[Rfam]
RNA sequence: AUACUCGUGUUUCUCUUCAUCAUCUAAUGUAUCUUUUGCCUUUUACUAAAGAUUCAUCUGGGGAGGGAAAAGCAUGACUGCUGCUACAAUUUUUUGAGGCCUUCUGGGGAU
Numbered sequence: 001a002u003a004c005u006c007g008u009g010u011u012u013c014u015c016u017u018c019a020u021c022a023u024c025u026a027a028u029g030u031a032u033c034u035u036u037u038g039c040c041u042u043u044u045a046c047u048a049a050a051g052a053u054u055c056a057u058c059u060g061g062g063g064a065g066g067g068a069a070a071a072g073c074a075u076g077a078c079u080g081c082u083g084c085u086a087c088a089a090u091u092u093u094u095u096g097a098g099g100c101c102u103u104c105u106g107g108g109g110a111u
Stems, first nucleotide, its partner, number of pairs: 003079001005077002010068010029055001031053006103110002
U5 spliceosomal RNA: a 111-nucleotide RNA sequence from Delphinapterus leucas. A reference for the family is Zwieb (1997), "The uRNA database", Nucleic Acids Res. Rfam classes the family as a spliceosomal small nuclear RNA.